Rfam assigns this 88-nucleotide RNA sequence from Ferroglobus placidus to the family "L4-Archaeoglobi ribosomal protein leades". The organism belongs to Ferroglobus placidus, within Archaea. It scores 43 bits against the family's covariance model.
RNA sequence: CUGACGGCACCGCGUGGGCUGAUAUAGGAAUGAAAGCCCUGGCCCUCUUUCGAGGAAAGGCUCGAAAGGGGGCCCGCGUGACCGUCAG
Dot-bracket structure: (((((.....((...(((....(.(.(...).).).)))..(((((((((((((......))))))))))))).)).......)))))